[Rfam]
RNA: Streptomyces RNA 5676
Organism: Streptomyces sp. 150FB
RNA sequence: AGAUGAGAGAAACACCCCGCUCGCAGGGGACUGCGGGCGAUGCCAACGCGGGGCGUCCCCAGCGCCGCUUUGGCCGUGCCAUCGCGCACACCGCUGGAGCUUCGGGCUCCGGAUCUCCUCACCGGUCGGA
Numbered sequence: 001a002g003a004u005g006a007g008a009g010a011a012a013c014a015c016c017c018c019g020c021u022c023g024c025a026g027g028g029g030a031c032u033g034c035g036g037g038c039g040a041u042g043c044c045a046a047c048g049c050g051g052g053g054c055g056u057c058c059c060c061a062g063c064g065c066c067g068c069u070u071u072g073g074c075c076g077u078g079c080c081a082u083c084g085c086g087c088a089c090a091c092c093g094c095u096g097g098a099g100c101u102u103c104g105g106g107c108u109c110c111g112g113a114u115c116u117c118c119u120c121a122c123c124g125g126u127c128g129g130a
Base pairs, nucleotide, nucleotide: 004121005120006119007118009117010116018039019038020037021036022035023034024033025032026031042074043073044072045071046070049067050066051065053063054062076089077088078087079086094112095111096110097109098108099107100106122129123128